Source information:
Shown here is a 46-nucleotide RNA sequence from Cettia cetti, a member of the family "Histone 3' UTR stem-loop". Lineage of the source: Eukaryota > Euteleostomi > Tetrapoda > Sylviidae > Cettia. Rfam describes the family as follows. The mRNAs of metazoan histone genes lack a poly-A tail. 3' end processing occurs at a site between a highly conserved stem-loop (modelled by this family) and a purine rich region around 20 nts downstream (the histone downstream element, or HDE). A search with the family's covariance model found it, with a score of 34 bits.
[Rfam]
RNA sequence: ACAAAGGCUCUUUUAAGAGCCACUACCUUGCACAAUUGAAAGAGCU
Numbered sequence: 001a002c003a004a005a006g007g008c009u010c011u012u013u014u015a016a017g018a019g020c021c022a023c024u025a026c027c028u029u030g031c032a033c034a035a036u037u038g039a040a041a042g043a044g045c046u
Stems, first nucleotide, its partner, number of pairs: 006021006